[Rfam]
RNA: Small nucleolar RNA SNORA33
RNA sequence: GAGUCAACCAAUUGGUCUGCUUAUCUGAAUCUGUUUCUACAGAAAUGUAGAGAUCUGGCAAUAGUGAUGCCAUAUUAUGAACCUUAAGGACAGCUGAGGUCAUUAAGGUCCCUGAAGAUGGCUACAAUA
Numbered sequence: 001g002a003g004u005c006a007a008c009c010a011a012u013u014g015g016u017c018u019g020c021u022u023a024u025c026u027g028a029a030u031c032u033g034u035u036u037c038u039a040c041a042g043a044a045a046u047g048u049a050g051a052g053a054u055c056u057g058g059c060a061a062u063a064g065u066g067a068u069g070c071c072a073u074a075u076u077a078u079g080a081a082c083c084u085u086a087a088g089g090a091c092a093g094c095u096g097a098g099g100u101c102a103u104u105a106a107g108g109u110c111c112c113u114g115a116a117g118a119u120g121g122c123u124a125c126a127a128u129a
Base pairs, nucleotide, nucleotide: 003059004058005057006056016043017042018041019040069122070121071120072119081109082108083107084106085105086104087103089101090100091099